RNA sequence: GUGUGAAACAAUCCGAAUACAAAUACUGUAGUGGGAAAACCUAUUUAAGGGGUGAAUCCGAAAUAUUGAAGGGCGACUUGGAAGCCCUAACCCGUCAGCUAAUCCCAUAGGAGAAUACCAAGCGAAUGA
Numbered sequence: 001g002u003g004u005g006a007a008a009c010a011a012u013c014c015g016a017a018u019a020c021a022a023a024u025a026c027u028g029u030a031g032u033g034g035g036a037a038a039a040c041c042u043a044u045u046u047a048a049g050g051g052g053u054g055a056a057u058c059c060g061a062a063a064u065a066u067u068g069a070a071g072g073g074c075g076a077c078u079u080g081g082a083a084g085c086c087c088u089a090a091c092c093c094g095u096c097a098g099c100u101a102a103u104c105c106c107a108u109a110g111g112a113g114a115a116u117a118c119c120a121a122g123c124g125a126a127u128g129a
Stems, first nucleotide, its partner, number of pairs: 012112003018030003031108006041049002050093003058068001061066001071087004
c-di-AMP riboswitch aptamer (ydaO/yuaA leader): a 129-nucleotide RNA from Candidatus Galacturonatibacter soehngenii. It scores 72 bits against the family's covariance model. The organism belongs to Candidatus Galacturonatibacter, within Bacteria.